[Rfam]
RNA: Small nucleolar RNA SNORA69
Organism: Xenopus laevis
RNA sequence: AAAGCAGGUUGCAAUUACAGUUCUUCUUUCUAUGGAAUUGCUGUCAUUAUCCUGCUGAGAGUAAAGAUGUCAGACUGUUUGGUUUCACCUUAACAUAGGAGAAAUUAUUGUUUCCUGACAUCAACAGCC
Numbered sequence: 001a002a003a004g005c006a007g008g009u010u011g012c013a014a015u016u017a018c019a020g021u022u023c024u025u026c027u028u029u030c031u032a033u034g035g036a037a038u039u040g041c042u043g044u045c046a047u048u049a050u051c052c053u054g055c056u057g058a059g060a061g062u063a064a065a066g067a068u069g070u071c072a073g074a075c076u077g078u079u080u081g082g083u084u085u086c087a088c089c090u091u092a093a094c095a096u097a098g099g100a101g102a103a104a105u106u107a108u109u110g111u112u113u114c115c116u117g118a119c120a121u122c123a124a125c126a127g128c129c
Base pairs, nucleotide, nucleotide: 003056004055005054006053007052008051018043019042020041021040024037025036026035066122067121068120069119070118071117072116073115074113080107081106082105083104084103085102086101088099089098090097